This 143-nucleotide RNA sequence from Paenibacillus sp. oral taxon 786 belongs to the Rfam family "Group II catalytic intron D1-D4-4".
About the family: Group II introns are found in rRNA, tRNA and mRNA of organelles in fungi, plants and protists, and also in mRNA in bacteria.
For this family Rfam cites "The ins and outs of group II introns" (Bonen and Vogel, Trends Genet, 2001).
Rfam links the family to the GO term Group II intron splicing.
RNA sequence: UAGCCGGUGAAAGUCCGGUCGCGGGAAGGGCCAAGCCCCCGCGUAGCUAGGAUACCUACGUAUGGCGAAAUCUGUACGUAGAAGCGUAUCGACGAAAGUACCUGUCAGAGGCAGGGCGAGCAACAUACCAGGCCGUAACAUGA
Numbered sequence: 001u002a003g004c005c006g007g008u009g010a011a012a013g014u015c016c017g018g019u020c021g022c023g024g025g026a027a028g029g030g031c032c033a034a035g036c037c038c039c040c041g042c043g044u045a046g047c048u049a050g051g052a053u054a055c056c057u058a059c060g061u062a063u064g065g066c067g068a069a070a071u072c073u074g075u076a077c078g079u080a081g082a083a084g085c086g087u088a089u090c091g092a093c094g095a096a097a098g099u100a101c102c103u104g105u106c107a108g109a110g111g112c113a114g115g116g117c118g119a120g121c122a123a124c125a126u127a128c129c130a131g132g133c134c135g136u137a138a139c140a141u142g143a
Base pairs, nucleotide, nucleotide: 020043021042022041023040024039051090052089053088054087055086056081057080058079059078060077061076065072098117101115102114103113104112105111120136121135